[Rfam]
RNA sequence: UAGGGCCCUGAGACUUCCCUGUCUGCACAGGGUAACAUCGGUGCAGACUGUGUCGGUGGUAUGAACUCCAACGACAGCCACGAAGUCUCCCAGCUGAACG
Numbered sequence: 001u002a003g004g005g006c007c008c009u010g011a012g013a014c015u016u017c018c019c020u021g022u023c024u025g026c027a028c029a030g031g032g033u034a035a036c037a038u039c040g041g042u043g044c045a046g047a048c049u050g051u052g053u054c055g056g057u058g059g060u061a062u063g064a065a066c067u068c069c070a071a072c073g074a075c076a077g078c079c080a081c082g083a084a085g086u087c088u089c090c091c092a093g094c095u096g097a098a099c100g
Stems, first nucleotide, its partner, number of pairs: 010089008040060001042058003046054001
Background: Pyrrolysine insertion sequence 1: a 100-nucleotide sequence from Methanohalophilus mahii. The sequence is in the family's curated seed alignment. NCBI's taxonomy places the organism under Archaea, Methanobacteriati, Methanosarcinales, Methanosarcinaceae, Methanohalophilus mahii. The family's RNA type in Rfam is cis-regulatory element.